[Rfam]
RNA sequence: GUCCAGGAUACAAUGAUGUCAUAGUUUCCAAGCACAUAUCUGAUUAUUAAAUGUUGGAAUACAUCUGUUUCUGAGUUUUCUGGAC
Numbered sequence: 001g002u003c004c005a006g007g008a009u010a011c012a013a014u015g016a017u018g019u020c021a022u023a024g025u026u027u028c029c030a031a032g033c034a035c036a037u038a039u040c041u042g043a044u045u046a047u048u049a050a051a052u053g054u055u056g057g058a059a060u061a062c063a064u065c066u067g068u069u070u071c072u073g074a075g076u077u078u079u080c081u082g083g084a085c
Base pairs, nucleotide, nucleotide: 001085002084003083004082005081006080008078010076011075
RNA: Small nucleolar RNA SNORD121A
Organism: Monodelphis domestica